[Rfam]
RNA: TPP riboswitch aptamer (THI element)
Organism: Streptococcus agalactiae
RNA sequence: AAAUACACAAGGGAGUGCCUUGAGCUGAGAUUGCAGAUAUGCAAAAUCCUCUAACCUGAUCUCGUUAGGACGAGCGUAGGAAUUGUGGUUUGAAUUGGU
Numbered sequence: 001a002a003a004u005a006c007a008c009a010a011g012g013g014a015g016u017g018c019c020u021u022g023a024g025c026u027g028a029g030a031u032u033g034c035a036g037a038u039a040u041g042c043a044a045a046a047u048c049c050u051c052u053a054a055c056c057u058g059a060u061c062u063c064g065u066u067a068g069g070a071c072g073a074g075c076g077u078a079g080g081a082a083u084u085g086u087g088g089u090u091u092g093a094a095u096u097g098g099u
Stems, first nucleotide, its partner, number of pairs: 006087005011050004016044001017025002032043004055080004061074004